[Rfam]
Rfam assigns this 94-nucleotide RNA from a Bathymodiolus heckerae thiotrophic gill symbiont to the family "t44 RNA".
On this family, see Tjaden et al., Nucleic Acids Res 2002: "Transcriptome analysis of Escherichia coli using high-density oligonucleotide probe arrays".
It scores 55 bits against the family's covariance model.
Rfam describes the family as follows. This family consists of a number of bacterial RNA genes of between 135 and 170 bases in length. The t44 gene has been identified in several species of enteric bacteria but homologs have also been identified in Pseudomonas and Coxiella species. The t44 gene is found between the map and rpsB genes in all species in the full alignment apart from Shigella flexneri.
Rfam classes the family as a small RNA.

RNA sequence: CUUAAUUUUUUUUAAUGUAUCACGCAACCCGACAUAUUCAUCAGGGUGCUUUUCAGUAGAAAGGUUGAUGGAUAGGGGAAGCGGAAGUUUUAAC
Number, nucleotide and partner (000 for none) at each position: 001c000002u000003u000004a000005a000006u000007u000008u000009u000010u000011u000012u000013u000014a000015a000016u000017g000018u000019a000020u000021c000022a000023c083024g082025c081026a000027a000028c078029c077030c076031g000032a000033c000034a000035u074036a073037u072038u071039c070040a069041u068042c067043a066044g000045g000046g000047u000048g065049c064050u063051u062052u061053u000054c000055a000056g000057u000058a000059g000060a000061a052062a051063g050064g049065u048066u043067g042068a041069u040070g039071g038072a037073u036074a035075g000076g030077g029078g028079a000080a000081g025082c024083g023084g000085a000086a000087g000088u000089u000090u000091u000092a000093a000094c000